[Rfam]
RNA: drz-agam-1 ribozyme
RNA sequence: UGUCCAGUAACUCCUAUCCCUACCUCCCCGUGGUGCCGCCCGGGGGUACCAGUAACCGUAGGGAAGAUCGGGUGUCCAAUCCUGGUAGGACCUUGGUCGUAUGCUGACAGGGAAGG
Numbered sequence: 001u002g003u004c005c006a007g008u009a010a011c012u013c014c015u016a017u018c019c020c021u022a023c024c025u026c027c028c029c030g031u032g033g034u035g036c037c038g039c040c041c042g043g044g045g046g047u048a049c050c051a052g053u054a055a056c057c058g059u060a061g062g063g064a065a066g067a068u069c070g071g072g073u074g075u076c077c078a079a080u081c082c083u084g085g086u087a088g089g090a091c092c093u094u095g096g097u098c099g100u101a102u103g104c105u106g107a108c109a110g111g112g113a114a115g116g
Stems, first nucleotide, its partner, number of pairs: 013116003017112003022034003046102004051097001053095002